[Rfam]
RNA: Plastid-psbN 5UTR RNA
Organism: Lactuca sativa
RNA sequence: UGUGAAACCCAUCAAAGGGAUCGUUCCCCACCCAUGAGCAACUUUACCAUAUACGAAUUC
Numbered sequence: 001u002g003u004g005a006a007a008c009c010c011a012u013c014a015a016a017g018g019g020a021u022c023g024u025u026c027c028c029c030a031c032c033c034a035u036g037a038g039c040a041a042c043u044u045u046a047c048c049a050u051a052u053a054c055g056a057a058u059u060c
Stems, first nucleotide, its partner, number of pairs: 017045003021041001023039004